[Rfam]
RNA: small Cajal body-specific RNA 17
RNA sequence: UCCCCAGAUCCCCGAUGCAGCCCCCUGAUGAGCCUGAAGUAUUUUCCUUAUAUGAUUGGGCCCCAAGGCUGGCGGCGCCGCUUGCCUGGAGCCUAAGAGGAUUAUGACCACGCGUAGGCGAAGUGGGGCUAGGGGACUGGGG
Numbered sequence: 001u002c003c004c005c006a007g008a009u010c011c012c013c014g015a016u017g018c019a020g021c022c023c024c025c026u027g028a029u030g031a032g033c034c035u036g037a038a039g040u041a042u043u044u045u046c047c048u049u050a051u052a053u054g055a056u057u058g059g060g061c062c063c064c065a066a067g068g069c070u071g072g073c074g075g076c077g078c079c080g081c082u083u084g085c086c087u088g089g090a091g092c093c094u095a096a097g098a099g100g101a102u103u104a105u106g107a108c109c110a111c112g113c114g115u116a117g118g119c120g121a122a123g124u125g126g127g128g129c130u131a132g133g134g135g136a137c138u139g140g141g142g
Stems, first nucleotide, its partner, number of pairs: 001142003005139003009136005020129005056096006063089002068085002071082004
Dot-bracket structure: (((.(((.(((((......(((((...............................((((((.((...((.((((....)))).))..)).))))))............................)))))..)))))))))))